[Rfam]
RNA sequence: GGGGUGCUGCCCGGUGCGUUAGGAAUAAACACGCUCGGGGCCUUACGCUCUUCGAGGGAGCUGUCCCUGCGGUUGGCCGUGGCCUUCUGCACACGGCGCCCACCUACUUAUGUAGGUCUCCGAGGUAGCAGAUUCCGACGGCCAGGGCGGCUCCCCA
Numbered sequence: 001g002g003g004g005u006g007c008u009g010c011c012c013g014g015u016g017c018g019u020u021a022g023g024a025a026u027a028a029a030c031a032c033g034c035u036c037g038g039g040g041c042c043u044u045a046c047g048c049u050c051u052u053c054g055a056g057g058g059a060g061c062u063g064u065c066c067c068u069g070c071g072g073u074u075g076g077c078c079g080u081g082g083c084c085u086u087c088u089g090c091a092c093a094c095g096g097c098g099c100c101c102a103c104c105u106a107c108u109u110a111u112g113u114a115g116g117u118c119u120c121c122g123a124g125g126u127a128g129c130a131g132a133u134u135c136c137g138a139c140g141g142c143c144a145g146g147g148c149g150g151c152u153c154c155c156c157a
Stems, first nucleotide, its partner, number of pairs: 002155003006151006013143003017140003034124003037120006056101003060097005069090004075084003
Annotation:
The record is a 157-nucleotide RNA from Tepidicaulis marinus, which matches "6S / SsrS RNA" in Rfam. The family's RNA type in Rfam is non-coding RNA gene. The match comes from Rfam's covariance-model search (62 bits).